Rfam assigns this 126-nucleotide RNA sequence from Gossypium aridum to the family "MIR7504 microRNA precursor family". Rfam 15.1 lists 7,343 matches to the family in 61 species. Gene Ontology terms of the family: miRNA-mediated post-transcriptional gene silencing and RISC complex.
RNA sequence: AAUAAAAGAAUGACUAAUCAGAUUAUUAUUCUCCUGAUUUUUAGCUUUUUCCUCUUGACAAAAAUUUAAAUUUAACUAAAAAUGCUAAAAAUCAGAAAAAAAAAUCUAAUUUGUCAUUCUCCUAUU
Number, nucleotide and partner (000 for none) at each position: 001a126002a125003u124004a123005a000006a000007a120008g119009a118010a117011u116012g115013a114014c113015u000016a111017a110018u109019c000020a107021g106022a105023u103024u102025a000026u101027u100028a000029u098030u097031c000032u000033c000034c095035u094036g093037a092038u091039u090040u089041u088042u000043a086044g085045c000046u000047u082048u081049u080050u079051c000052c000053u000054c000055u000056u000057g000058a000059c000060a000061a000062a000063a000064a000065u000066u000067u000068a000069a000070a000071u000072u000073u000074a000075a000076c000077u000078a000079a050080a049081a048082a047083u000084g000085c044086u043087a000088a041089a040090a039091a038092u037093c036094a035095g034096a000097a030098a029099a000100a027101a026102a024103a023104a000105u022106c021107u020108a000109a018110u017111u016112u000113g014114u013115c012116a011117u010118u009119c008120u007121c000122c000123u004124a003125u002126u001
A search with the family's covariance model found it, with a score of 83 bits.